[Rfam]
RNA sequence: AUAAAUCUUCAGGGCAGGGUGAAAUUCCCUAUCGGCGGUAAAGCCCGCAAGCCUUAUAGGUAGGAUUCGGUGAAACUCCGAGGCCGACAGUGAUAGUCUGGAUAGAAGAAGAUAAAU
Numbered sequence: 001a002u003a004a005a006u007c008u009u010c011a012g013g014g015c016a017g018g019g020u021g022a023a024a025u026u027c028c029c030u031a032u033c034g035g036c037g038g039u040a041a042a043g044c045c046c047g048c049a050a051g052c053c054u055u056a057u058a059g060g061u062a063g064g065a066u067u068c069g070g071u072g073a074a075a076c077u078c079c080g081a082g083g084c085c086g087a088c089a090g091u092g093a094u095a096g097u098c099u100g101g102a103u104a105g106a107a108g109a110a111g112a113u114a115a116a117u
Stems, first nucleotide, its partner, number of pairs: 005113006017029003031097002033086002035048004043084002053060001066082005088100003
RNA: FMN riboswitch aptamer (RFN element)